[Rfam]
Rfam assigns this 300-nucleotide RNA sequence from Chelonia mydas to the family "Metazoan signal recognition particle RNA". Rfam classes the family as a non-coding RNA gene. Its Rfam clan is "SRP clan". It scores 223 bits against the family's covariance model. A reference for the family is Wild et al. (2002), "Towards the structure of the mammalian signal recognition particle", Curr Opin Struct Biol.
RNA sequence: GCUGGGCACCGUGGCUUGGGCCUGUAAUCCUGGUUACUUGGGAGGCUGAGGCUGGUGGAUCGCUUGAGCUCAGGAGUUCUAGGCUGCAGUGGGUGGUGCCGAUCAGGUGUCUGCACUAAGCUCGGCAUCGAUAUGGUGAUCCCUGGAGAGCUUGGGGUCACCCAGUUGCCUAAGGAGGGGUGAACUGGCCCAGGCUGGAAAUGGAGCAGGCCAAAACUCCUGUGCCAAUCAGUAGUGGGAUCAUGCCUGUGAAUAGCCCCUGCAGCUUAGCCUGGGCAAGACAGUGAGACAUGGUCUCUU
Numbered sequence: 001g002c003u004g005g006g007c008a009c010c011g012u013g014g015c016u017u018g019g020g021c022c023u024g025u026a027a028u029c030c031u032g033g034u035u036a037c038u039u040g041g042g043a044g045g046c047u048g049a050g051g052c053u054g055g056u057g058g059a060u061c062g063c064u065u066g067a068g069c070u071c072a073g074g075a076g077u078u079c080u081a082g083g084c085u086g087c088a089g090u091g092g093g094u095g096g097u098g099c100c101g102a103u104c105a106g107g108u109g110u111c112u113g114c115a116c117u118a119a120g121c122u123c124g125g126c127a128u129c130g131a132u133a134u135g136g137u138g139a140u141c142c143c144u145g146g147a148g149a150g151c152u153u154g155g156g157g158u159c160a161c162c163c164a165g166u167u168g169c170c171u172a173a174g175g176a177g178g179g180g181u182g183a184a185c186u187g188g189c190c191c192a193g194g195c196u197g198g199a200a201a202u203g204g205a206g207c208a209g210g211c212c213a214a215a216a217c218u219c220c221u222g223u224g225c226c227a228a229u230c231a232g233u234a235g236u237g238g239g240a241u242c243a244u245g246c247c248u249g250u251g252a253a254u255a256g257c258c259c260c261u262g263c264a265g266c267u268u269a270g271c272c273u274g275g276g277c278a279a280g281a282c283a284g285u286g287a288g289a290c291a292u293g294g295u296c297u298c299u300u
Base pairs, nucleotide, nucleotide: 001046002045003044004023005022006021007020009018011016028043029042030041048298049297050296051295052294053293054292060287061286062285063284064283068277069276070275071274072273073272074271079270080269081268082267083266084265085264086263087262088261089260091258093257094256096254097253099251104249105248106247107246108245109244110243111239112238114237115236116235117234118233120230122228124226125225126224127223128222129168130167131166132165135162136161137160138159139158140157141156142155143154145152146151169175170174176221177220178219179218180217181216186213187212188211189210190209195204196203197202